[Rfam]
RNA sequence: UUGCAGGACAAAGCGCAUGGCGUUUUGAACGCUGCUUGCAGCGACCCCGAAGGGGCGAAGCCCAGGGAAGGGCUGAGUAAUAAGUGCAGC
Number, nucleotide and partner (000 for none) at each position: 001u000002u000003g000004c000005a000006g000007g000008a000009c027010a026011a025012a024013g023014c022015g021016c020017a000018u000019g000020g016021c015022g014023u013024u012025u011026u010027g009028a000029a000030c043031g042032c041033u040034g039035c000036u000037u000038g000039c034040a033041g032042c031043g030044a000045c055046c054047c053048c052049g000050a000051a000052g048053g047054g046055g045056c000057g000058a000059a074060g073061c072062c071063c070064a000065g000066g000067g000068a000069a000070g063071g062072g061073c060074u059075g000076a000077g087078u086079a085080a000081u000082a000083a000084g000085u079086g078087c077088a000089g000090c000
This 90-nucleotide RNA from Brenneria goodwinii belongs to the Rfam family "Aggregatibacter sRNA 22". On this family, see Oogai et al., DNA Res 2017: "Small RNA repertoires and their intraspecies variation in Aggregatibacter actinomycetemcomitans". The family's consensus secondary structure was predicted with RNAfold. Taxonomically the source falls in Brenneria (Bacteria, Pseudomonadati, Gammaproteobacteria, Enterobacterales).